[Rfam]
RNA sequence: GGUCAAUGAUGAAUGGUAAAAGGUCUGAGUCCUCAGAUCCCUUCCCGGCAUCCCAGUUAUCCCCAGCUGCCUCUCCUCCAUCGCACUUCAGAAGUGCUGCGAUGGGCAGAAGGGCAGCUGACACUCCGUGAUGUCCCUCAUUCUGUGUUCCUCCGUGAGCUCAGGGAAGACACUGGUUGGCAUCCAACAGCUUAGUCACAAAGGGAUUUGAUUGUUGGGAGUGCUGAUAUCUGUGGCUAUGAUCUGCCUUGUUCAAGCUGAGACC
Numbered sequence: 001g002g003u004c005a006a007u008g009a010u011g012a013a014u015g016g017u018a019a020a021a022g023g024u025c026u027g028a029g030u031c032c033u034c035a036g037a038u039c040c041c042u043u044c045c046c047g048g049c050a051u052c053c054c055a056g057u058u059a060u061c062c063c064c065a066g067c068u069g070c071c072u073c074u075c076c077u078c079c080a081u082c083g084c085a086c087u088u089c090a091g092a093a094g095u096g097c098u099g100c101g102a103u104g105g106g107c108a109g110a111a112g113g114g115c116a117g118c119u120g121a122c123a124c125u126c127c128g129u130g131a132u133g134u135c136c137c138u139c140a141u142u143c144u145g146u147g148u149u150c151c152u153c154c155g156u157g158a159g160c161u162c163a164g165g166g167a168a169g170a171c172a173c174u175g176g177u178u179g180g181c182a183u184c185c186a187a188c189a190g191c192u193u194a195g196u197c198a199c200a201a202a203g204g205g206a207u208u209u210g211a212u213u214g215u216u217g218g219g220a221g222u223g224c225u226g227a228u229a230u231c232u233g234u235g236g237c238u239a240u241g242a243u244c245u246g247c248c249u250u251g252u253u254c255a256a257g258c259u260g261a262g263a264c265c
Stems, first nucleotide, its partner, number of pairs: 001265004034246006042221008060206004064120007077106009086096001128185001130184006144172003148168005
RNA: Small Cajal body specific RNA 6
Organism: Pan troglodytes